RNA sequence: GCCUUUGCAUCUUGUCAGAAAAUAAGCUAUUCUAAAGGAGUCGAUUUUUCGGCUAUGGUAAUAAACUGACGGUGAAAUAAACCUAUUGGACCCGGGGGCAGUACCCGGCGCCUCCACCUCAAGGUGGCUUGUAGGCCACCUUGAGGUGGGGGCGAAAUAGGAUCGACGAAGGCGUAAAGAUCGUUCUUUUACCCGGUAUUGUACCACCGUUAUCGGGCUGUUUUAAAAUAGUUGCAAACGACAACUAUGCGGAGGUUCGUCUCGCUGCUUAAUAGUGGUGUGAUGGCUUCAAUUUGAGUCUUGUUCUGUCGCAGGAGCAAGCGGGGUUCGAAGGCACCUAGCAACAGAAGCCUUCACU
Numbered sequence: 001g002c003c004u005u006u007g008c009a010u011c012u013u014g015u016c017a018g019a020a021a022a023u024a025a026g027c028u029a030u031u032c033u034a035a036a037g038g039a040g041u042c043g044a045u046u047u048u049u050c051g052g053c054u055a056u057g058g059u060a061a062u063a064a065a066c067u068g069a070c071g072g073u074g075a076a077a078u079a080a081a082c083c084u085a086u087u088g089g090a091c092c093c094g095g096g097g098g099c100a101g102u103a104c105c106c107g108g109c110g111c112c113u114c115c116a117c118c119u120c121a122a123g124g125u126g127g128c129u130u131g132u133a134g135g136c137c138a139c140c141u142u143g144a145g146g147u148g149g150g151g152g153c154g155a156a157a158u159a160g161g162a163u164c165g166a167c168g169a170a171g172g173c174g175u176a177a178a179g180a181u182c183g184u185u186c187u188u189u190u191a192c193c194c195g196g197u198a199u200u201g202u203a204c205c206a207c208c209g210u211u212a213u214c215g216g217g218c219u220g221u222u223u224u225a226a227a228a229u230a231g232u233u234g235c236a237a238a239c240g241a242c243a244a245c246u247a248u249g250c251g252g253a254g255g256u257u258c259g260u261c262u263c264g265c266u267g268c269u270u271a272a273u274a275g276u277g278g279u280g281u282g283a284u285g286g287c288u289u290c291a292a293u294u295u296g297a298g299u300c301u302u303g304u305u306c307u308g309u310c311g312c313a314g315g316a317g318c319a320a321g322c323g324g325g326g327u328u329c330g331a332a333g334g335c336a337c338c339u340a341g342c343a344a345c346a347g348a349a350g351c352c353u354u355c356a357c358u
Stems, first nucleotide, its partner, number of pairs: 040053005057193005068185006082172003086169003092108005109154007194209004199220001201218001204216002324339004330355006
Source information
This 358-nucleotide sequence from Candidatus Tokpelaia sp. JSC189 belongs to the Rfam family "Alphaproteobacteria transfer-messenger RNA". It scores 274 bits against the family's covariance model. The organism belongs to Candidatus Tokpelaia, within Bacteria. From the family's description: Bacterial tmRNA, also known as 10Sa RNA or SsrA, is named for its dual tRNA and mRNA-like properties.